[Rfam]
RNA sequence: AAUCGCCCGCUUCAUGGAGGUCAAGGCCGUCAUGACUGAGCUAUCUUUCAAUCUGGUCGUGCCGCUGGCCCACAAGGCCACCGCCAUGCGCGUUACGGAAACCGACCGCCGGUGUGCGGCGCGGUCCGGCGCAGUUUCCCGACUGAGUAAUCGGACGGGCGACGUAGAUAGCACGAUGCAUCC
Dot-bracket structure: ....((.....((((((.(((....))).))))))....))...............((((((((.(((((.....))))).))...(((((....((((..((..((((......))))...))))))))))).((.((((.((((....)))).)))).))........)))))).......
This 183-nucleotide sequence from Ralstonia solanacearum belongs to the Rfam family "RT-15 RNA". Rfam classes the family as a small RNA.